[Rfam]
RNA sequence: CCAGCUCGAAGACCACGAUUGCUCACUACGCACGGGACGUUCUGCGUCCAAUCUCGUGAGCGGGUUAAGGUCUGAGUGUUCUAAUCCCCCUCGAUCGGCUCUAGAAGGGUCUCAUCAUAGUUGUUGGAGUGGCGUACCAGCAAGGCAGCUUUUCCUCGACGUGCCGAAGAUCCUAUUACCUGCUUAGGGGAGGUUUCGUGGAUGUGGCUUUGAAAGCGCUGCGGGGAUUGGGCGAAGCAUCAUCUCCAGUGGACUGUAUUCGCAUCCUUUAUCUCGCAUAGUGCCCUCCAAAAGGGCGCCCCGAAUCCCUCGUUAUUCCAGUGGAAGUGAGCGCCAUUCAUUUACAUCCCCUAGCGAGCGGUCAGAGGAGGCUCUGUGUCCCCUGAGAUGAUGGUGGAUAUUCGGCUGCCGUCCAUGUCGCAAAUUGCGACAAACUGGAGGAAGGGAUCGGGAAAAGCCCGCUUUUCAUCUGGGGCGUUGCCAUGUUUCGGACGUGCUUUGCUCCUUGCGAACGAGAAGGAAUAUUGUGAAUGCAUGUGAGCCUCUGGAGAACGCUUUCUGCCCUUGAGUUCACUUCGUGGUGCCCUGCGCGGUGAUACGUGCGGACAACUCGAUUCAGACUACUCUCGGACUGG
Numbered sequence: 001c002c003a004g005c006u007c008g009a010a011g012a013c014c015a016c017g018a019u020u021g022c023u024c025a026c027u028a029c030g031c032a033c034g035g036g037a038c039g040u041u042c043u044g045c046g047u048c049c050a051a052u053c054u055c056g057u058g059a060g061c062g063g064g065u066u067a068a069g070g071u072c073u074g075a076g077u078g079u080u081c082u083a084a085u086c087c088c089c090c091u092c093g094a095u096c097g098g099c100u101c102u103a104g105a106a107g108g109g110u111c112u113c114a115u116c117a118u119a120g121u122u123g124u125u126g127g128a129g130u131g132g133c134g135u136a137c138c139a140g141c142a143a144g145g146c147a148g149c150u151u152u153u154c155c156u157c158g159a160c161g162u163g164c165c166g167a168a169g170a171u172c173c174u175a176u177u178a179c180c181u182g183c184u185u186a187g188g189g190g191a192g193g194u195u196u197c198g199u200g201g202a203u204g205u206g207g208c209u210u211u212g213a214a215a216g217c218g219c220u221g222c223g224g225g226g227a228u229u230g231g232g233c234g235a236a237g238c239a240u241c242a243u244c245u246c247c248a249g250u251g252g253a254c255u256g257u258a259u260u261c262g263c264a265u266c267c268u269u270u271a272u273c274u275c276g277c278a279u280a281g282u283g284c285c286c287u288c289c290a291a292a293a294g295g296g297c298g299c300c301c302c303g304a305a306u307c308c309c310u311c312g313u314u315a316u317u318c319c320a321g322u323g324g325a326a327g328u329g330a331g332c333g334c335c336a337u338u339c340a341u342u343u344a345c346a347u348c349c350c351c352u353a354g355c356g357a358g359c360g361g362u363c364a365g366a367g368g369a370g371g372c373u374c375u376g377u378g379u380c381c382c383c384u385g386a387g388a389u390g391a392u393g394g395u396g397g398a399u400a401u402u403c404g405g406c407u408g409c410c411g412u413c414c415a416u417g418u419c420g421c422a423a424a425u426u427g428c429g430a431c432a433a434a435c436u437g438g439a440g441g442a443a444g445g446g447a448u449c450g451g452g453a454a455a456a457g458c459c460c461g462c463u464u465u466u467c468a469u470c471u472g473g474g475g476c477g478u479u480g481c482c483a484u485g486u487u488u489c490g491g492a493c494g495u496g497c498u499u500u501g502c503u504c505c506u507u508g509c510g511a512a513c514g515a516g517a518a519g520g521a522a523u524a525u526u527g528u529g530a531a532u533g534c535a536u537g538u539g540a541g542c543c544u545c546u547g548g549a550g551a552a553c554g555c556u557u558u559c560u561g562c563c564c565u566u567g568a569g570u571u572c573a574c575u576u577c578g579u580g581g582u583g584c585c586c587u588g589c590g591c592g593g594u595g596a597u598a599c600g601u602g603c604g605g606a607c608a609a610c611u612c613g614a615u616u617c618a619g620a621c622u623a624c625u626c627u628c629g630g631a632c633u634g635g
Base pairs, nucleotide, nucleotide: 001635002634003633004632007629008628009627016578017577018576020062021061022060023059024058035049036048037047038046039045072619073618074617075616076615087226088225089224090223097111098110099109100108101107112127113126114125116123117122129222130221131220132219133218134217135216148208149207150206

A member of the RNA family "Nuclear RNase P" from Phlebopus sp. FC_14, 635 nucleotides long. The source organism's lineage runs through Eukaryota, Opisthokonta, Agaricomycotina, Agaricomycetidae and Phlebopus. Ribonuclease P (RNase P) is a ubiquitous endoribonuclease, found in archaea, bacteria and eukarya as well as chloroplasts and mitochondria. For this family Rfam cites "Ribonuclease P: unity and diversity in a tRNA processing ribozyme" (Frank and Pace, Annu Rev Biochem, 1998).